[Rfam]
RNA sequence: CGGUCGGGAGGCUCUCUUGGGACGAGAGCCGGGAAUUGACCAGAAACGCCCUGUCUCGAGGGGAGCAAGCACGGUGCCCGACGUGGCCUGCU
Dot-bracket structure: .((((....(((((((.......))))))).......))))......................((((..((((........))))...))))